[Rfam]
RNA: Small nucleolar RNA SNORA74
RNA sequence: UCCAGUGGUAGUCAGCUAUCCAGGACAUUGCCAUUCCUGUGAUAGUGUUACACUACUGGUAGAUUAAUAGACUGUCCUUUUGACCUGGUUACCACCUUCACUGUUCUAGUGAUUCCUGGUAUCAGGGCAGACAGAAGGGGACUGUGCUUCCUCGAGAGUGUGCUGAGCAGGGAUUUUGACUAUUCAGUGUUAGUGUGGAAGCAGACAUA
Numbered sequence: 001u002c003c004a005g006u007g008g009u010a011g012u013c014a015g016c017u018a019u020c021c022a023g024g025a026c027a028u029u030g031c032c033a034u035u036c037c038u039g040u041g042a043u044a045g046u047g048u049u050a051c052a053c054u055a056c057u058g059g060u061a062g063a064u065u066a067a068u069a070g071a072c073u074g075u076c077c078u079u080u081u082g083a084c085c086u087g088g089u090u091a092c093c094a095c096c097u098u099c100a101c102u103g104u105u106c107u108a109g110u111g112a113u114u115c116c117u118g119g120u121a122u123c124a125g126g127g128c129a130g131a132c133a134g135a136a137g138g139g140g141a142c143u144g145u146g147c148u149u150c151c152u153c154g155a156g157a158g159u160g161u162g163c164u165g166a167g168c169a170g171g172g173a174u175u176u177u178g179a180c181u182a183u184u185c186a187g188u189g190u191u192a193g194u195g196u197g198g199a200a201g202c203a204g205a206c207a208u209a
Base pairs, nucleotide, nucleotide: 002059003058004057005056006055007054008053009052011051012050015046016045017044018043019042020041021039022038023037024036025035072134073133074132075131076130084126085125086124087123088120089119090118091117097112099111100110101109102108145203146202147201148200149199150198151197160190161189162188164186165185166184167183169181170180